[Rfam]
RNA: mir-393 microRNA precursor family
RNA sequence: AAAGGAGGCAUCCGAAGGGAUAGCAUGAUCCAAAAUUACGUAGAAGAAAUUGAAGGAUAUAGAUAAGUUGGGAUCAAUGCGAUCCCUUUGGAUGCUUCCUU
Numbered sequence: 001a002a003a004g005g006a007g008g009c010a011u012c013c014g015a016a017g018g019g020a021u022a023g024c025a026u027g028a029u030c031c032a033a034a035a036u037u038a039c040g041u042a043g044a045a046g047a048a049a050u051u052g053a054a055g056g057a058u059a060u061a062g063a064u065a066a067g068u069u070g071g072g073a074u075c076a077a078u079g080c081g082a083u084c085c086c087u088u089u090g091g092a093u094g095c096u097u098c099c100u101u
Stems, first nucleotide, its partner, number of pairs: 002101005008095014023080003026076006035068003